[Rfam]
RNA: Bacterial large subunit ribosomal RNA, nucleotides 1638 to 1973
Organism: uncultured Verrucomicrobiota bacterium
RNA sequence: GAGUGAACCCUUGUUAAGGAACUCUGCAAUCUAGUCCCGUAACUUCGGAAGAAGGGAUGCCUGUCGCAAGACAGGUCGCAGUGAACUGGGUCAACCGACUGUUUAUCAAAAACACAGCAUUGUGCCAAGACGCAAGUCUAUGUAUACGAUGUGACACGUGACCAAUGCGGAAAGAUUAAGGCAAGAGGUUAGCCGCAAGGCGAAGCUUUGAGCCCAAGUCCCCGUGAAUGUCGGCCGUAACUAUAACGGUCCUAAGGUAGCGAAAUUCCUUGUCGGGUAAGUUCCGACCUGCACGAAUCGUGUAACGAGUUGACCGCUGUCUCAACAAGGCGCUCA
Numbered sequence: 001g002a003g004u005g006a007a008c009c010c011u012u013g014u015u016a017a018g019g020a021a022c023u024c025u026g027c028a029a030u031c032u033a034g035u036c037c038c039g040u041a042a043c044u045u046c047g048g049a050a051g052a053a054g055g056g057a058u059g060c061c062u063g064u065c066g067c068a069a070g071a072c073a074g075g076u077c078g079c080a081g082u083g084a085a086c087u088g089g090g091u092c093a094a095c096c097g098a099c100u101g102u103u104u105a106u107c108a109a110a111a112a113c114a115c116a117g118c119a120u121u122g123u124g125c126c127a128a129g130a131c132g133c134a135a136g137u138c139u140a141u142g143u144a145u146a147c148g149a150u151g152u153g154a155c156a157c158g159u160g161a162c163c164a165a166u167g168c169g170g171a172a173a174g175a176u177u178a179a180g181g182c183a184a185g186a187g188g189u190u191a192g193c194c195g196c197a198a199g200g201c202g203a204a205g206c207u208u209u210g211a212g213c214c215c216a217a218g219u220c221c222c223c224g225u226g227a228a229u230g231u232c233g234g235c236c237g238u239a240a241c242u243a244u245a246a247c248g249g250u251c252c253u254a255a256g257g258u259a260g261c262g263a264a265a266u267u268c269c270u271u272g273u274c275g276g277g278u279a280a281g282u283u284c285c286g287a288c289c290u291g292c293a294c295g296a297a298u299c300g301u302g303u304a305a306c307g308a309g310u311u312g313a314c315c316g317c318u319g320u321c322u323c324a325a326c327a328a329g330g331c332g333c334u335c336a
Base pairs, nucleotide, nucleotide: 001335002334003333009330010329011328012327013326014325015324017322018321019320034058035057036056037055038054043048059076060075061074062073063072064071065070077081089315090314091313092312093311094310095309096307097306100114101113102112117152118151119150120149121148122147123146124145125142128139129138130137131136155302156301157300158299160232161231162230165229166228167225168224169223170222174220175219176218180214181213185209186208187207188206189205192201193200233251234250235249236248237247238246252256262289272288273287274286275285276284277283